[Rfam]
RNA sequence: UGCGGGAUGCCGAAGUCGGGUCCCGCGCUAUGACACUUGCUGAAUCAUCAGGAGAAUACUCAUGAGC
Number, nucleotide and partner (000 for none) at each position: 001u027002g026003c025004g024005g023006g022007a021008u020009g000010c019011c018012g017013a000014a000015g000016u000017c012018g011019g010020g008021u007022c006023c005024c004025g003026c002027g001028c000029u000030a000031u056032g000033a000034c000035a000036c054037u053038u052039g000040c051041u050042g049043a048044a000045u000046c000047a000048u043049c042050a041051g040052g038053a037054g036055a000056a031057u000058a000059c000060u000061c000062a000063u000064g000065a000066g000067c000
RNA: Repression of heat shock gene expression (ROSE) element